RNA sequence: CAGACAUUCAUUUUUAUCCAGUUUCUUCUCAAAGUGAAGAUAACUUUUUGUAAAUGUCCUAAAGUCAUGUAGAAUGUAGUAGCUUUCUGUUCACACUGUACAAAUAAAAAGGAUGGAUCAUUCUACAACUGACAUUA
Numbered sequence: 001c002a003g004a005c006a007u008u009c010a011u012u013u014u015u016a017u018c019c020a021g022u023u024u025c026u027u028c029u030c031a032a033a034g035u036g037a038a039g040a041u042a043a044c045u046u047u048u049u050g051u052a053a054a055u056g057u058c059c060u061a062a063a064g065u066c067a068u069g070u071a072g073a074a075u076g077u078a079g080u081a082g083c084u085u086u087c088u089g090u091u092c093a094c095a096c097u098g099u100a101c102a103a104a105u106a107a108a109a110a111g112g113a114u115g116g117a118u119c120a121u122u123c124u125a126c127a128a129c130u131g132a133c134a135u136u137a
Stems, first nucleotide, its partner, number of pairs: 003058006010051002020045004024040005077131004082126001096111002099108001
RNA: Small Cajal body specific RNA 24